[Rfam]
Small nucleolar RNA SNORD16: a 99-nucleotide sequence from Jaculus jaculus. On this family, see Huttenhofer et al., EMBO J 2001: "RNomics: an experimental approach that identifies 201 candidates for novel, small, non-messenger RNAs in mouse". The family is grouped with related families in Rfam's "SNORD16 clan". The base pairs follow the family's consensus structure, which was predicted with PFOLD. It scores 58 bits against the family's covariance model. Gene Ontology terms of the family: nucleolus and RNA processing.
RNA sequence: UACAAUGGUGUUUUAAUUUGUGUCUUACUCUGUUCUCAGCCAGUUAUCUGCUGUCAGUAAGCUAGUUUAGAAGGUUGAUAAAUUAUUAUUAAAAAGGCA
Number, nucleotide and partner (000 for none) at each position: 001u099002a000003c097004a000005a000006u000007g000008g000009u000010g000011u000012u000013u000014u000015a000016a000017u000018u000019u000020g000021u080022g079023u078024c077025u000026u000027a000028c000029u000030c070031u069032g068033u000034u000035c000036u000037c000038a000039g062040c061041c053042a052043g051044u000045u000046a000047u000048c000049u000050g000051c043052u042053g041054u000055c000056a000057g000058u000059a000060a000061g040062c039063u000064a000065g000066u000067u000068u032069a031070g030071a000072a000073g000074g000075u000076u000077g024078a023079u022080a021081a000082a000083u000084u000085a000086u000087u000088a000089u000090u000091a000092a000093a000094a000095a000096g000097g003098c000099a001